Notes
This 104-nucleotide RNA sequence from Halobacillus karajensis belongs to the Rfam family "Purine riboswitch aptamer". The family's consensus secondary structure is taken from published work. Rfam links the family to the GO term purine nucleobase biosynthetic process. It scores 69 bits against the family's covariance model.
RNA sequence: GUCAUCCAAUUACAUCCUACUCGUAUAUUCUCAGUAAUAAGGUCUGAGCGUUUCUACCUGGUUCCCAUUGAAAGAACUAGACUACGAGUUAAAGCAUAUCGCUG
Numbered sequence: 001g002u003c004a005u006c007c008a009a010u011u012a013c014a015u016c017c018u019a020c021u022c023g024u025a026u027a028u029u030c031u032c033a034g035u036a037a038u039a040a041g042g043u044c045u046g047a048g049c050g051u052u053u054c055u056a057c058c059u060g061g062u063u064c065c066c067a068u069u070g071a072a073a074g075a076a077c078u079a080g081a082c083u084a085c086g087a088g089u090u091a092a093a094g095c096a097u098a099u100c101g102c103u104g
Base pairs, nucleotide, nucleotide: 019089020088021087022086023085024084025083030048031047032046033045034044058080059079060078061077062076063075064074
From the family's description: Riboswitches are metabolite binding domains within certain messenger RNAs that serve as precision sensors for their corresponding targets. Allosteric rearrangement of mRNA structure is mediated by ligand binding, and this results in modulation of gene expression. A class of riboswitches that selectively recognises guanine and becomes saturated at concentrations as low as 5 nM. In Bacillus subtilis, this mRNA motif is located on at least five separate transcriptional units that together encode 17 genes that are mostly involved in purine transport and purine nucleotide biosynthesis.